A member of the RNA family "mir-156 microRNA precursor family" from Protea cynaroides, 83 nucleotides long. Rfam describes the family as follows. This family represents the plant microRNA (miRNA) precursor mir-156. The source organism's lineage runs through Eukaryota, Tracheophyta, Mesangiospermae, Proteaceae and Protea. The base pairs follow the family's consensus structure, which was predicted with PFOLD.
RNA sequence: CUGACAGAAGAGAGUGAGCACACACGGAUAAUUGCAUAGAUCGUAUGCCUUUGUUUGUGGGUGCUCACGUCUCUUACUGUCAG
Numbered sequence: 001c002u003g004a005c006a007g008a009a010g011a012g013a014g015u016g017a018g019c020a021c022a023c024a025c026g027g028a029u030a031a032u033u034g035c036a037u038a039g040a041u042c043g044u045a046u047g048c049c050u051u052u053g054u055u056u057g058u059g060g061g062u063g064c065u066c067a068c069g070u071c072u073c074u075u076a077c078u079g080u081c082a083g
Stems, first nucleotide, its partner, number of pairs: 001083007009075001010073004014068008023059003
Background:
A reference for the family is Ambros (2001), "microRNAs: tiny regulators with great potential", Cell.